[Rfam]
RNA sequence: CAGGCACGCACGGGAGAGAUCGGGUGGCAGCGGCCAUCCGGCGCCGAAGGAGCAACCGCCCCGGAAACUCUCAGGCUACACGGACCGUGCGGGCCAU
Numbered sequence: 001c002a003g004g005c006a007c008g009c010a011c012g013g014g015a016g017a018g019a020u021c022g023g024g025u026g027g028c029a030g031c032g033g034c035c036a037u038c039c040g041g042c043g044c045c046g047a048a049g050g051a052g053c054a055a056c057c058g059c060c061c062c063g064g065a066a067a068c069u070c071u072c073a074g075g076c077u078a079c080a081c082g083g084a085c086c087g088u089g090c091g092g093g094c095c096a097u
Stems, first nucleotide, its partner, number of pairs: 007091007020041007043076003046072002050070003056064002
RNA: Glycine riboswitch aptamer
Organism: Erythrobacter aureus